Rfam assigns this 168-nucleotide RNA sequence from Mediterraneibacter catenae to the family "M-box riboswitch aptamer (ykoK leader)". The source organism's lineage runs through Bacteria, Bacillati, Bacillota, Lachnospiraceae and Mediterraneibacter. A search with the family's covariance model found it, with a score of 89 bits.
[Rfam]
RNA sequence: UACAUCAUUCGGUAGGUGAGGUUACCACAGGGAUUGGGAUAUACCCGAAGAUUGCUGCCGCGAGAUCGUGGAGACACGAUAAGAUGGUCAGCAGGCUGUGUCGUGAAGGUGCAGCCUAAUGCAAUUGAUAUGCCCUGUGAUACUAAAGCUUGAACGAUGCAUCCCGGU
Numbered sequence: 001u002a003c004a005u006c007a008u009u010c011g012g013u014a015g016g017u018g019a020g021g022u023u024a025c026c027a028c029a030g031g032g033a034u035u036g037g038g039a040u041a042u043a044c045c046c047g048a049a050g051a052u053u054g055c056u057g058c059c060g061c062g063a064g065a066u067c068g069u070g071g072a073g074a075c076a077c078g079a080u081a082a083g084a085u086g087g088u089c090a091g092c093a094g095g096c097u098g099u100g101u102c103g104u105g106a107a108g109g110u111g112c113a114g115c116c117u118a119a120u121g122c123a124a125u126u127g128a129u130a131u132g133c134c135c136u137g138u139g140a141u142a143c144u145a146a147a148g149c150u151u152g153a154a155c156g157a158u159g160c161a162u163c164c165c166g167g168u
Base pairs, nucleotide, nucleotide: 007162008161010159011155013107015150016149017148020144021143022142026139027138028137029136030135031134032133051125052124053123054122055121057088058087059086060085067078068077069076070075094116095115096114097113100110101109102108